A member of the RNA family "5' ureB small RNA" from Paraburkholderia ginsengiterrae, 286 nucleotides long. NCBI's taxonomy places the organism under Bacteria, Pseudomonadati, Pseudomonadota, Betaproteobacteria, Paraburkholderia. Rfam 15.1 lists 4,812 matches to the family in 4,480 species. The base pairs follow the family's consensus structure, which was predicted with mfold. A reference for the family is Wen et al. (2013), "Helicobacter pylori 5'ureB-sRNA, a cis-encoded antisense small RNA, negatively regulates ureAB expression by transcription termination", J Bacteriol.
[Rfam]
RNA sequence: CUUCCUCGAUCUGCUGCGGGCUGAUGAAGUGAAUGUGCGUAUCGAUGCCGCCCGCUGUCACGAUCAGGCCUUCGCCCGCGAUCACUUCGGUGGAGGCGCCGAUCGCAAUCGUCACGUUCGGUUGGAUAUCGGGGUUGCCCGCUUUGCCGAUUGCGGCAAUGCGGCCGUUCUUGAUGCCGAUGUCGGCCUUGACGAUGCCCCAGUGAUCGAGAAUCACCGCGUUCGUGACGACCGUGUCGACCACGUCGGCAUGCACGCGCUGCGACUGGCCCAUGCCGUCGCGGAU
Numbered sequence: 001c002u003u004c005c006u007c008g009a010u011c012u013g014c015u016g017c018g019g020g021c022u023g024a025u026g027a028a029g030u031g032a033a034u035g036u037g038c039g040u041a042u043c044g045a046u047g048c049c050g051c052c053c054g055c056u057g058u059c060a061c062g063a064u065c066a067g068g069c070c071u072u073c074g075c076c077c078g079c080g081a082u083c084a085c086u087u088c089g090g091u092g093g094a095g096g097c098g099c100c101g102a103u104c105g106c107a108a109u110c111g112u113c114a115c116g117u118u119c120g121g122u123u124g125g126a127u128a129u130c131g132g133g134g135u136u137g138c139c140c141g142c143u144u145u146g147c148c149g150a151u152u153g154c155g156g157c158a159a160u161g162c163g164g165c166c167g168u169u170c171u172u173g174a175u176g177c178c179g180a181u182g183u184c185g186g187c188c189u190u191g192a193c194g195a196u197g198c199c200c201c202a203g204u205g206a207u208c209g210a211g212a213a214u215c216a217c218c219g220c221g222u223u224c225g226u227g228a229c230g231a232c233c234g235u236g237u238c239g240a241c242c243a244c245g246u247c248g249g250c251a252u253g254c255a256c257g258c259g260c261u262g263c264g265a266c267u268g269g270c271c272c273a274u275g276c277c278g279u280c281g282c283g284g285a286u
Stems, first nucleotide, its partner, number of pairs: 002285002005283001007281003012158006018076002023071001031052001034050002037048004057069003078147001081144001085141001090138004095130002099125007107117001164270004171265003176260002178257002186220002190216002200209001224253002230247002234244003